The family of this 76-nucleotide RNA sequence from Dipodomys ordii is "Small nucleolar RNA SNORD28". The match comes from Rfam's covariance-model search (83 bits). Rfam classes the family as a C/D-box small nucleolar RNA. Rfam links the family to the GO terms RNA processing and nucleolus. Lineage of the source: Eukaryota > Gnathostomata > Teleostomi > Castorimorpha > Dipodomys.

[Rfam]
Nucleotides: 076
Stems, first nucleotide, its partner, number of pairs: 001075004
Number, partner (000 for none) and nucleotide at each position: 001075g002074u003073c004072a005000g006000a007000u008000g009000a010000u011000u012000u013000g014000a015000a016000u017000u018000a019000a020000c021000a022000g023000g024000c025000u026000g027000a028000u029000c030000c031000u032000c033000a034000g035000u036000g037000a038000g039000g040000c041000a042000c043000a044000a045000c046000a047000a048000u049000u050000a051000a052000a053000u054000a055000g056000c057000a058000u059000g060000u061000u062000a063000g064000a065000g066000u067000u068000c069000u070000g071000a072004u073003g074002g075001c076000a